[Rfam]
RNA sequence: CUAUAUUUCUGUAAAAGAUUUAUGGCAAAGGAG
Numbered sequence: 001c002u003a004u005a006u007u008u009c010u011g012u013a014a015a016a017g018a019u020u021u022a023u024g025g026c027a028a029a030g031g032a033g
Stems, first nucleotide, its partner, number of pairs: 001025005008018003
RNA: L31-Firmicutes ribosomal protein leader